[Rfam]
RNA sequence: GACCGAUAUCGCAACGGUAAUUCAACUUAGUACGAGAGGAACCGUUGAUUCAGAUAAUUGGUUUUUGCGGCUGUCUGACAAGGCAUUGCCGCGACGCUACCAUCUGCCGGAUUAUGGCUGAACGCCUCUAAGUCAGAACCCGUGCCGGAACGCGAUAUUAUUUUCUCCGCACGUCGUAGUCGGAUACGAAUAGGCUUCGGCCAGGCACCCCAACAGGUCGACACCGCCUUCCAGAGGGAAGACUCGGGAAGGUCGUCGACGGAUAGUCAUUUCGCAACGGGCGGGGAGUAGAACCUCUGCAGACGACCGAGAUGCACCACCAGGUCGUGUACGUAGUCGAGUAGGCUAGUUCUUACGAGCUACUGAGCGUAAGCCUGACUGUGGUCCGUUCUCC
Numbered sequence: 001g002a003c004c005g006a007u008a009u010c011g012c013a014a015c016g017g018u019a020a021u022u023c024a025a026c027u028u029a030g031u032a033c034g035a036g037a038g039g040a041a042c043c044g045u046u047g048a049u050u051c052a053g054a055u056a057a058u059u060g061g062u063u064u065u066u067g068c069g070g071c072u073g074u075c076u077g078a079c080a081a082g083g084c085a086u087u088g089c090c091g092c093g094a095c096g097c098u099a100c101c102a103u104c105u106g107c108c109g110g111a112u113u114a115u116g117g118c119u120g121a122a123c124g125c126c127u128c129u130a131a132g133u134c135a136g137a138a139c140c141c142g143u144g145c146c147g148g149a150a151c152g153c154g155a156u157a158u159u160a161u162u163u164u165c166u167c168c169g170c171a172c173g174u175c176g177u178a179g180u181c182g183g184a185u186a187c188g189a190a191u192a193g194g195c196u197u198c199g200g201c202c203a204g205g206c207a208c209c210c211c212a213a214c215a216g217g218u219c220g221a222c223a224c225c226g227c228c229u230u231c232c233a234g235a236g237g238g239a240a241g242a243c244u245c246g247g248g249a250a251g252g253u254c255g256u257c258g259a260c261g262g263a264u265a266g267u268c269a270u271u272u273c274g275c276a277a278c279g280g281g282c283g284g285g286g287a288g289u290a291g292a293a294c295c296u297c298u299g300c301a302g303a304c305g306a307c308c309g310a311g312a313u314g315c316a317c318c319a320c321c322a323g324g325u326c327g328u329g330u331a332c333g334u335a336g337u338c339g340a341g342u343a344g345g346c347u348a349g350u351u352c353u354u355a356c357g358a359g360c361u362a363c364u365g366a367g368c369g370u371a372a373g374c375c376u377g378a379c380u381g382u383g384g385u386c387c388g389u390u391c392u393c394c
Base pairs, nucleotide, nucleotide: 005159006158007157008156009155010154011153012152015147016146017145018144020050022048023047024046025045026044051106052105053104054103055102059099060098061097066093067092068091069090070089072085073084074083075082076081108142109141110140115135116134117133118132119131166286167285168284172280290392291391292390293389294388295311296310297309299307316385317384318383319382320381322376323375324374326369327368333363334362335361336360338359341356342355343354344353345352
Dot-bracket structure: ....((((((((..((((.(.(((((.................))))).)(((((...(((....(((((.(((((....)))))...)))))...)))..))))).(((....(((((...........)))))....))).))))....))))))))......(((...(...........................................................................................................)...)))...((((((((.(.......).)))....(((((.(((.((.....((((.(..(((((......)))))..)))))....))....)))....)))))..)))))..

Description
Eukaryotic large subunit ribosomal RNA: a 394-nucleotide part of an RNA from Cladophialophora carrionii. A search with the family's covariance model found it, with a score of 3220 bits.